[Rfam]
Description:
A member of the RNA family "Pyrrolysine insertion sequence mttB" from Planktotalea frisia, 96 nucleotides long. Pairs were carried over by alignment from the consensus structure, which was predicted with CMfinder. NCBI's taxonomy places the organism under Bacteria, Pseudomonadati, Rhodobacterales, Paracoccaceae, Planktotalea. Rfam links the family to the GO term pyrrolysine incorporation. A reference for the family is Theil Have et al. (2013), "Effects of using coding potential, sequence conservation and mRNA structure conservation for predicting pyrroly-sine containing genes", BMC Bioinformatics.

RNA sequence: GCGACAGACAGCAAGCUGCCGGACGCGCAAUCGGGGUUUGAAAAGGCCUUGUCGGUAACACUUGCCGCCCAAGCCGGGGCCAACCUGAUCACUCAG
Numbered sequence: 001g002c003g004a005c006a007g008a009c010a011g012c013a014a015g016c017u018g019c020c021g022g023a024c025g026c027g028c029a030a031u032c033g034g035g036g037u038u039u040g041a042a043a044a045g046g047c048c049u050u051g052u053c054g055g056u057a058a059c060a061c062u063u064g065c066c067g068c069c070c071a072a073g074c075c076g077g078g079g080c081c082a083a084c085c086u087g088a089u090c091a092c093u094c095a096g
Base pairs, nucleotide, nucleotide: 003012025032033062034061077094079092